Rfam assigns this 492-nucleotide part of an RNA from Gracilariopsis chorda to the family "Eukaryotic small subunit ribosomal RNA". On this family, see Yusupov et al., Science 2001: "Crystal structure of the ribosome at 5.5 A resolution". The family's consensus secondary structure is taken from published work. Taxonomically the source falls in Gracilariopsis (Eukaryota, Florideophyceae, Gracilariales, Gracilariaceae).
RNA sequence: UGACGGAAGGGCAUCACCGGGUGUGGAGCCUGCGGCUUAAUUUGACUCAACACGGGAAAACUUACCAGGUCAGGACAUAGUAAGGAUUGACAGAUUGAGAGCUCUUUCUUGAUUCUAUGGUUGGUGGUGCAUGGCCGUUCUUAGUUGGUGGAGUGAUCUGUCUGGUUAAUUCCGUUAACGAGCGAGACCUGGGCGUGCUAGCUAGGCGCCGUUACCUUUGGUAGCGAGGCAAAGCCUUCCUAGACGGACUGUGGGCGUCUAGCCCACGGAAGCUCCAGGCAAUAACAGGUCUGAGAUGCCCUUAGAUGUCCUGGGCCGCACGCGUGCUACACUGAACGGGUCAACGAGUGACGGAUAUGCGAGAGCAUUUCCGAAUCUCCAAAUCCGUUCGUGAUGGGGAUCGACGGUUGCAAUUUUCCGUCGUCAACGAGGAAUACCUUGUAAGCGCGGGUCAUCAUCCCGCGCUGAAUACGUCCCUGCCCUUUGUACACA
Numbered sequence: 001u002g003a004c005g006g007a008a009g010g011g012c013a014u015c016a017c018c019g020g021g022u023g024u025g026g027a028g029c030c031u032g033c034g035g036c037u038u039a040a041u042u043u044g045a046c047u048c049a050a051c052a053c054g055g056g057a058a059a060a061c062u063u064a065c066c067a068g069g070u071c072a073g074g075a076c077a078u079a080g081u082a083a084g085g086a087u088u089g090a091c092a093g094a095u096u097g098a099g100a101g102c103u104c105u106u107u108c109u110u111g112a113u114u115c116u117a118u119g120g121u122u123g124g125u126g127g128u129g130c131a132u133g134g135c136c137g138u139u140c141u142u143a144g145u146u147g148g149u150g151g152a153g154u155g156a157u158c159u160g161u162c163u164g165g166u167u168a169a170u171u172c173c174g175u176u177a178a179c180g181a182g183c184g185a186g187a188c189c190u191g192g193g194c195g196u197g198c199u200a201g202c203u204a205g206g207c208g209c210c211g212u213u214a215c216c217u218u219u220g221g222u223a224g225c226g227a228g229g230c231a232a233a234g235c236c237u238u239c240c241u242a243g244a245c246g247g248a249c250u251g252u253g254g255g256c257g258u259c260u261a262g263c264c265c266a267c268g269g270a271a272g273c274u275c276c277a278g279g280c281a282a283u284a285a286c287a288g289g290u291c292u293g294a295g296a297u298g299c300c301c302u303u304a305g306a307u308g309u310c311c312u313g314g315g316c317c318g319c320a321c322g323c324g325u326g327c328u329a330c331a332c333u334g335a336a337c338g339g340g341u342c343a344a345c346g347a348g349u350g351a352c353g354g355a356u357a358u359g360c361g362a363g364a365g366c367a368u369u370u371c372c373g374a375a376u377c378u379c380c381a382a383a384u385c386c387g388u389u390c391g392u393g394a395u396g397g398g399g400a401u402c403g404a405c406g407g408u409u410g411c412a413a414u415u416u417u418c419c420g421u422c423g424u425c426a427a428c429g430a431g432g433a434a435u436a437c438c439u440u441g442u443a444a445g446c447g448c449g450g451g452u453c454a455u456c457a458u459c460c461c462g463c464g465c466u467g468a469a470u471a472c473g474u475c476c477c478u479g480c481c482c483u484u485u486g487u488a489c490a491c492a
Base pairs, nucleotide, nucleotide: 001490002489003487004486005485007484008483009482010481011480012479013478016474017473020438021437022436023435024434025330027328028327029326031324032323033322034321035319036318041056042055043054044053065314066313067312068311069310071308076119077118078117079116080115089108090107092105093104094103123302124301126300127299128298129297132296134290135289136288137286138285139284144183145182146181148179149178150159151158152157163174164173165172189278190277191276192275194246195245196244198243199242200241201240204237205236206235207234249269250268251267252266253265254264255263256262334390335389336388337387338386339385340384346379347378348377353372354371357368358367359366360365397428402423403422404421405420406419407418444466445465446464447463448462449461450460451459